[Rfam]
RNA: Listeria sRNA rli28
RNA sequence: GUUUUCAUGCUAUAAUAUUCAGCGAGGAAGUUUUAAGGGCGGUGGCUGACUCAGUAGAAAUGAGGUGGUUCCAUUGGAACAACUCUGGACGAAAGGGAAGCCCAAUGUCGACGUUUCAAGCGCUGACGUUGAUGAUUGCUUUUGGUAUGCUAGUAGCUACCAUUUGCAACAACAA
Numbered sequence: 001g002u003u004u005u006c007a008u009g010c011u012a013u014a015a016u017a018u019u020c021a022g023c024g025a026g027g028a029a030g031u032u033u034u035a036a037g038g039g040c041g042g043u044g045g046c047u048g049a050c051u052c053a054g055u056a057g058a059a060a061u062g063a064g065g066u067g068g069u070u071c072c073a074u075u076g077g078a079a080c081a082a083c084u085c086u087g088g089a090c091g092a093a094a095g096g097g098a099a100g101c102c103c104a105a106u107g108u109c110g111a112c113g114u115u116u117c118a119a120g121c122g123c124u125g126a127c128g129u130u131g132a133u134g135a136u137u138g139c140u141u142u143u144g145g146u147a148u149g150c151u152a153g154u155a156g157c158u159a160c161c162a163u164u165u166g167c168a169a170c171a172a173c174a175a
Base pairs, nucleotide, nucleotide: 042148043147044146046144061089064084065083066082068080070078071077107127108126109125112122113121114120153170154169156167159164